[Rfam]
RNA sequence: CGUAGGCAAGCAGCGCCCGCUGGCACAGUUCGGAACGCACGCAGUCCUGUUUAUUAAAACGAACCACGCCCACCAUGUCAUCUUCGGUGAAGCGCGCCAGUGCAUCAUUAAGACCGGACUGGACGUGAGCAGGCAAAUCACACUGGGUAAUAUCGCCGUUCACAAUCACCGUCACGUUCUCCCCCAGCCUGGUC
Numbered sequence: 001c002g003u004a005g006g007c008a009a010g011c012a013g014c015g016c017c018c019g020c021u022g023g024c025a026c027a028g029u030u031c032g033g034a035a036c037g038c039a040c041g042c043a044g045u046c047c048u049g050u051u052u053a054u055u056a057a058a059a060c061g062a063a064c065c066a067c068g069c070c071c072a073c074c075a076u077g078u079c080a081u082c083u084u085c086g087g088u089g090a091a092g093c094g095c096g097c098c099a100g101u102g103c104a105u106c107a108u109u110a111a112g113a114c115c116g117g118a119c120u121g122g123a124c125g126u127g128a129g130c131a132g133g134c135a136a137a138u139c140a141c142a143c144u145g146g147g148u149a150a151u152a153u154c155g156c157c158g159u160u161c162a163c164a165a166u167c168a169c170c171g172u173c174a175c176g177u178u179c180u181c182c183c184c185c186a187g188c189c190u191g192g193u194c
Stems, first nucleotide, its partner, number of pairs: 002054007014041002018037002061078001063076001083112002086109003093102003113193005120187001122185001125134002137166002144158003171183001174180001
Shown here is a 194-nucleotide RNA from Erwinia tasmaniensis, a member of the family "Yersinia sRNA 251". The family's consensus secondary structure was predicted with RNAfold.